[Rfam]
RNA sequence: AAAACACCUUGUUGGGUGAGGUUACUUUCGAAACACAGGCUGGUGCCCAAAAACAUCGAGAGAUGCCAAUGGGUAAAGCAGGUAUUGUCGGCUUAAGGCUUUACCAAUUCAGCUGAAUGGAGCAGGAUCCAUUCUACGUUCGAUCGUGCCAAAACUGAACGAGGAGAGUGUUCA
Numbered sequence: 001a002a003a004a005c006a007c008c009u010u011g012u013u014g015g016g017u018g019a020g021g022u023u024a025c026u027u028u029c030g031a032a033a034c035a036c037a038g039g040c041u042g043g044u045g046c047c048c049a050a051a052a053a054c055a056u057c058g059a060g061a062g063a064u065g066c067c068a069a070u071g072g073g074u075a076a077a078g079c080a081g082g083u084a085u086u087g088u089c090g091g092c093u094u095a096a097g098g099c100u101u102u103a104c105c106a107a108u109u110c111a112g113c114u115g116a117a118u119g120g121a122g123c124a125g126g127a128u129c130c131a132u133u134c135u136a137c138g139u140u141c142g143a144u145c146g147u148g149c150c151a152a153a154a155c156u157g158a159a160c161g162a163g164g165a166g167a168g169u170g171u172u173c174a
Stems, first nucleotide, its partner, number of pairs: 005170003009166002011160002013096001015156003020150003025146001028143005039113005045074005054065004081105004087099003115134006
Dot-bracket structure: ....(((.(((([.(((..(((..(..(((((......(((((.(((((....((((....))))....)))))......((((..(((......])))..))))...))))).((((((........))))))....)))))..).)))...)))..))....)).)))....